[Rfam]
This 96-nucleotide part of an RNA from Methanococcus voltae belongs to the Rfam family "Archaeal large subunit ribosomal RNA".
RNA sequence: GGCAUGGCCCCAAAGGCAACUAUAUCGAAGGAAGCUACUGCGAAGUAGUGUUACGAGGUAUAGAGCCAGGGUUGUGUCGUCCGUUUCGAAAAACGG
Number, nucleotide and partner (000 for none) at each position: 001g078002g077003c076004a075005u074006g073007g072008c071009c070010c069011c000012a000013a000014a000015g067016g066017c000018a000019a000020c063021u062022a061023u060024a059025u058026c057027g000028a000029a000030g054031g000032a000033a000034g000035c048036u047037a046038c045039u044040g000041c000042g000043a000044a039045g038046u037047a036048g035049u000050g000051u000052u000053a000054c030055g000056a000057g026058g025059u024060a023061u022062a021063g020064a000065g000066c016067c015068a000069g010070g009071g008072u007073u006074g005075u004076g003077u002078c001079g000080u000081c096082c095083g094084u093085u000086u000087c000088g000089a000090a000091a000092a000093a084094c083095g082096g081
Record summary
The base pairs follow the family's consensus structure, which is taken from published work. On this family, see Yusupov et al., Science 2001: "Crystal structure of the ribosome at 5.5 A resolution". Rfam's curators put it in the seed alignment.